[Rfam]
Background
This 90-nucleotide sequence belongs to the Rfam family "freshwater-2 RNA". It is one of the family's seed sequences. Rfam classes the family as a cis-regulatory element.
RNA sequence: AAUUACAUAAUGUAAUGGACUUAUGCUGUUUAACCCACAGCGUACUGGAUAGAACCCAGAUAGGACUACUAUAAUAGGAGAAAACAAAUG
Numbered sequence: 001a002a003u004u005a006c007a008u009a010a011u012g013u014a015a016u017g018g019a020c021u022u023a024u025g026c027u028g029u030u031u032a033a034c035c036c037a038c039a040g041c042g043u044a045c046u047g048g049a050u051a052g053a054a055c056c057c058a059g060a061u062a063g064g065a066c067u068a069c070u071a072u073a074a075u076a077g078g079a080g081a082a083a084a085c086a087a088a089u090g
Base pairs, nucleotide, nucleotide: 002016003015004014005013006012022044023043024042025041026040027039028038045059046058047057048056